[Rfam]
RNA: Plant signal recognition particle RNA
Organism: Ensete ventricosum
RNA sequence: GCCGAGCCCGGUAGCGUUGGCUUGUAACCCGAGAGGGGGGCAACAGAGUGGUGGGAUGUUGUGUUCAGCUCCGGUGGGAUGGGUGUGGCUGUUGCAGGACUUGGCUUGCCCGUUCCAAGUCAGGUAGCUGAGCUUUGCGUCCCGGGCGAAGGCCCGAGACACAUGGGAUCCUAAAUCGGAGGGCAACGCGUCAGGCUGGCUUCACAGAGCAGCGACAACCUCUCGCUCUUGACGGUGGAAGGAUUACAGGCCGGUGCACUCCUCACUCGCCUUGCCCAUCGGCGAACACUCAUCAGACCAUCACUCUU
Numbered sequence: 001g002c003c004g005a006g007c008c009c010g011g012u013a014g015c016g017u018u019g020g021c022u023u024g025u026a027a028c029c030c031g032a033g034a035g036g037g038g039g040g041c042a043a044c045a046g047a048g049u050g051g052u053g054g055g056a057u058g059u060u061g062u063g064u065u066c067a068g069c070u071c072c073g074g075u076g077g078g079a080u081g082g083g084u085g086u087g088g089c090u091g092u093u094g095c096a097g098g099a100c101u102u103g104g105c106u107u108g109c110c111c112g113u114u115c116c117a118a119g120u121c122a123g124g125u126a127g128c129u130g131a132g133c134u135u136u137g138c139g140u141c142c143c144g145g146g147c148g149a150a151g152g153c154c155c156g157a158g159a160c161a162c163a164u165g166g167g168a169u170c171c172u173a174a175a176u177c178g179g180a181g182g183g184c185a186a187c188g189c190g191u192c193a194g195g196c197u198g199g200c201u202u203c204a205c206a207g208a209g210c211a212g213c214g215a216c217a218a219c220c221u222c223u224c225g226c227u228c229u230u231g232a233c234g235g236u237g238g239a240a241g242g243a244u245u246a247c248a249g250g251c252c253g254g255u256g257c258a259c260u261c262c263u264c265a266c267u268c269g270c271c272u273u274g275c276c277c278a279u280c281g282g283c284g285a286a287c288a289c290u291c292a293u294c295a296g297a298c299c300a301u302c303a304c305u306c307u308u
Stems, first nucleotide, its partner, number of pairs: 001041003004023005010017001028038003045307010057295002059292001061290001062288005071282008080274001081268005087262002093258004101254008110242002113240005119233006126227003130170002133167003136163002139160003143156005178223005189214003196207003